RNA sequence: CAAAGUCACAUCUAUUUUAGAAUUUGUCUAGCGGGUUUUUCAGUCUUCACCGGAAAGCUCCC
Numbered sequence: 001c002a003a004a005g006u007c008a009c010a011u012c013u014a015u016u017u018u019a020g021a022a023u024u025u026g027u028c029u030a031g032c033g034g035g036u037u038u039u040u041c042a043g044u045c046u047u048c049a050c051c052g053g054a055a056a057g058c059u060c061c062c
Stems, first nucleotide, its partner, number of pairs: 034059008043050002
The record is a 62-nucleotide RNA from Pan troglodytes, which matches "U7 small nuclear RNA" in Rfam. The organism belongs to Pan, within Eukaryota.